[Rfam]
RNA sequence: GAUCCCGGAGGCCCACACCCGACAGCGCGAUGCGUCCUCGGGUGUCGUUAUG
Numbered sequence: 001g002a003u004c005c006c007g008g009a010g011g012c013c014c015a016c017a018c019c020c021g022a023c024a025g026c027g028c029g030a031u032g033c034g035u036c037c038u039c040g041g042g043u044g045u046c047g048u049u050a051u052g
Stems, first nucleotide, its partner, number of pairs: 016044007025035004